[Rfam]
RNA sequence: GAGCUAUGAGGAAAACACAAAAACAUACUGACAUUCCUCUGAAGACUGUCAGAUCCAACUCUGAGCUCACAGUUCCU
Dot-bracket structure: ((((............................................................)))).........

The family of this 77-nucleotide RNA sequence from Anolis carolinensis is "Small nucleolar RNA SNORD19".
Rfam links the family to the GO terms RNA processing and nucleolus.
Its Rfam clan is "SNORD19 clan".
Lineage of the source: Eukaryota > Deuterostomia > Dipnotetrapodomorpha > Tetrapoda > Anolis.
The sequence is in the family's curated seed alignment.
By type it is a C/D-box small nucleolar RNA.